[Rfam]
RNA: let-7 microRNA precursor family
RNA sequence: CCGGGCUGAGGUAGGAGGUUGUAUAGUUGAGGAGGACACCCAAGGAGAUCACUAUACGGCCUCCUAGCUUUCCCCAG
Numbered sequence: 001c002c003g004g005g006c007u008g009a010g011g012u013a014g015g016a017g018g019u020u021g022u023a024u025a026g027u028u029g030a031g032g033a034g035g036a037c038a039c040c041c042a043a044g045g046a047g048a049u050c051a052c053u054a055u056a057c058g059g060c061c062u063c064c065u066a067g068c069u070u071u072c073c074c075c076a077g
Stems, first nucleotide, its partner, number of pairs: 001077001003075003008070003012066016032039001040047001